[Rfam]
RNA sequence: UGCUCGCUCAAAGAAUCGCAUUCAAAGCUCUCAAACAGAAGUAUCUCUUAUGAUUCUUCAAUUGAAACAUAAUUUUCAAUAUUGCUUUGGGAGAAAGUCCCCGGACAUCCUUCAUUGAAAGGCAUGCGGAAACGCACCGCCAUAGAAGUACUUGCGGUUUAUCCUUUGUCUGGAUCUAUUUACUCACAUGGCACACUCUCGUUCAAAACCUAACAUUAACUACUCUUUAGGACUUCAUAUCAUAAGUGAGAUGACCUGAGAGGCGAAGAUAUGAGCCCGAGCUUCUCAUGGACGAUUUGAUGGCACGAAAAAGAAAUUUUUGUUAGAAAUGACUUGUAUGUUUUGAGUUUAUAGUAAUCGAUGACAGAGGGAAUUCUAUCGUCGUGAAUUAUAGUUAUGCGAUUGUUCACCUUGCUACGUAAGUAGCUUGGUGAGUAACUCGAUGGGGCUUAUUCUUGAUACGAGC
Numbered sequence: 001u002g003c004u005c006g007c008u009c010a011a012a013g014a015a016u017c018g019c020a021u022u023c024a025a026a027g028c029u030c031u032c033a034a035a036c037a038g039a040a041g042u043a044u045c046u047c048u049u050a051u052g053a054u055u056c057u058u059c060a061a062u063u064g065a066a067a068c069a070u071a072a073u074u075u076u077c078a079a080u081a082u083u084g085c086u087u088u089g090g091g092a093g094a095a096a097g098u099c100c101c102c103g104g105a106c107a108u109c110c111u112u113c114a115u116u117g118a119a120a121g122g123c124a125u126g127c128g129g130a131a132a133c134g135c136a137c138c139g140c141c142a143u144a145g146a147a148g149u150a151c152u153u154g155c156g157g158u159u160u161a162u163c164c165u166u167u168g169u170c171u172g173g174a175u176c177u178a179u180u181u182a183c184u185c186a187c188a189u190g191g192c193a194c195a196c197u198c199u200c201g202u203u204c205a206a207a208a209c210c211u212a213a214c215a216u217u218a219a220c221u222a223c224u225c226u227u228u229a230g231g232a233c234u235u236c237a238u239a240u241c242a243u244a245a246g247u248g249a250g251a252u253g254a255c256c257u258g259a260g261a262g263g264c265g266a267a268g269a270u271a272u273g274a275g276c277c278c279g280a281g282c283u284u285c286u287c288a289u290g291g292a293c294g295a296u297u298u299g300a301u302g303g304c305a306c307g308a309a310a311a312a313g314a315a316a317u318u319u320u321u322g323u324u325a326g327a328a329a330u331g332a333c334u335u336g337u338a339u340g341u342u343u344u345g346a347g348u349u350u351a352u353a354g355u356a357a358u359c360g361a362u363g364a365c366a367g368a369g370g371g372a373a374u375u376c377u378a379u380c381g382u383c384g385u386g387a388a389u390u391a392u393a394g395u396u397a398u399g400c401g402a403u404u405g406u407u408c409a410c411c412u413u414g415c416u417a418c419g420u421a422a423g424u425a426g427c428u429u430g431g432u433g434a435g436u437a438a439c440u441c442g443a444u445g446g447g448g449c450u451u452a453u454u455c456u457u458g459a460u461a462c463g464a465g466c
Stems, first nucleotide, its partner, number of pairs: 002466005008459004014404006022091001023089006043070001095451003099448004125136004326376003333371003337367001342364002349357003406435006
Background
The record is a 466-nucleotide RNA sequence from Erysiphe necator, which matches "RNase MRP" in Rfam. Rfam 15.1 lists 3,510 matches to the family in 2,315 species. Gene Ontology terms of the family: rRNA processing, ribonuclease MRP complex and ribonuclease MRP activity. The organism belongs to Erysiphe, within Eukaryota. The base pairs follow the family's consensus structure, which is taken from published work. By type it is a ribozyme.